RNA sequence: GGUGGAUGGUGUGCACGGUGUUGGUCCGUGUUACGUGUUGUUGCUCAACUGUGUUUUGCAGACUGAGCAGCAGCGCUCACUCCACACCUGCAGCCACAGAAUAUCUGGAGAUCAUAGUACUGGCCUUUGACGUCUUUGCAGACAUAUUAUCAUCGGUCAGCCUCCAAACUCUCCAACAUGC
Numbered sequence: 001g002g003u004g005g006a007u008g009g010u011g012u013g014c015a016c017g018g019u020g021u022u023g024g025u026c027c028g029u030g031u032u033a034c035g036u037g038u039u040g041u042u043g044c045u046c047a048a049c050u051g052u053g054u055u056u057u058g059c060a061g062a063c064u065g066a067g068c069a070g071c072a073g074c075g076c077u078c079a080c081u082c083c084a085c086a087c088c089u090g091c092a093g094c095c096a097c098a099g100a101a102u103a104u105c106u107g108g109a110g111a112u113c114a115u116a117g118u119a120c121u122g123g124c125c126u127u128u129g130a131c132g133u134c135u136u137u138g139c140a141g142a143c144a145u146a147u148u149a150u151c152a153u154c155g156g157u158c159a160g161c162c163u164c165c166a167a168a169c170u171c172u173c174c175a176a177c178a179u180g181c
Stems, first nucleotide, its partner, number of pairs: 013091003030080002035077001036075006043068005050060003107174005120160006128152002132143004
Shown here is a 181-nucleotide RNA sequence from Neolamprologus brichardi, a member of the family "Small nucleolar RNA SNORA23". Gene Ontology terms of the family: nucleolus and RNA processing. Rfam 15.1 lists 1,092 matches to the family in 632 species. For this family Rfam cites "RNomics: an experimental approach that identifies 201 candidates for novel, small, non-messenger RNAs in mouse" (Huttenhofer et al., EMBO J, 2001). NCBI's taxonomy places the organism under Eukaryota, Osteoglossocephalai, Cichlidae, Lamprologini, Neolamprologus. The members of this family belong to the H/ACA class of snoRNAs which are thought to guide the sites of modification of uridines to pseudouridines.